[Rfam]
RNA sequence: AUGAACCUAAACGACCUAAGCCCUGCCUUCUCUUAAGUCCUUGCGGCUCCGAAGCCGCUCCAGUUUGAAUAAGUAUUACUUCAAAAAC
Numbered sequence: 001a002u003g004a005a006c007c008u009a010a011a012c013g014a015c016c017u018a019a020g021c022c023c024u025g026c027c028u029u030c031u032c033u034u035a036a037g038u039c040c041u042u043g044c045g046g047c048u049c050c051g052a053a054g055c056c057g058c059u060c061c062a063g064u065u066u067g068a069a070u071a072a073g074u075a076u077u078a079c080u081u082c083a084a085a086a087a088c
Stems, first nucleotide, its partner, number of pairs: 037066001040063002043058006
BsrC: an 88-nucleotide RNA sequence from Bacillus aerolatus. The 301 nucleotide sequence from Kouji Nakamura has been trimmed to a highly conserved ~85 nucleotide long core to form this family. The literature on the family includes a 2008 paper in Gene by Saito et al., "Novel small RNA-encoding genes in the intergenic regions of Bacillus subtilis". The source organism's lineage runs through Bacteria, Bacillati, Bacillota, Caryophanales and Bacillus. The match comes from Rfam's covariance-model search (59 bits).